A member of the RNA family "Small nucleolar RNA snoR144" from Raphanus sativus, 136 nucleotides long. Gene Ontology terms of the family: RNA processing and nucleolus. The family's RNA type in Rfam is H/ACA-box small nucleolar RNA. Taxonomically the source falls in Raphanus (Eukaryota, Viridiplantae, Magnoliopsida, Mesangiospermae). The family's consensus secondary structure was predicted with mfold.
RNA sequence: GAGGCAACUUUUUGCCUAGUGAAUCGAAUAUCGAUAUCUCUCUUUUUCCUAGUUGCCUAAAUCAUGUUAUGACCGCCUGAGAGGAAUUAGUAGGUUAAGUAAUUUCAGUGUACCCUUCCUCUUUGCUGCUACAUUU
Numbered sequence: 001g002a003g004g005c006a007a008c009u010u011u012u013u014g015c016c017u018a019g020u021g022a023a024u025c026g027a028a029u030a031u032c033g034a035u036a037u038c039u040c041u042c043u044u045u046u047u048c049c050u051a052g053u054u055g056c057c058u059a060a061a062u063c064a065u066g067u068u069a070u071g072a073c074c075g076c077c078u079g080a081g082a083g084g085a086a087u088u089a090g091u092a093g094g095u096u097a098a099g100u101a102a103u104u105u106c107a108g109u110g111u112a113c114c115c116u117u118c119c120u121c122u123u124u125g126c127u128g129c130u131a132c133a134u135u136u
Stems, first nucleotide, its partner, number of pairs: 003057007018041002021038002023035004064134004071127001073125001081121005094109001095107001097105001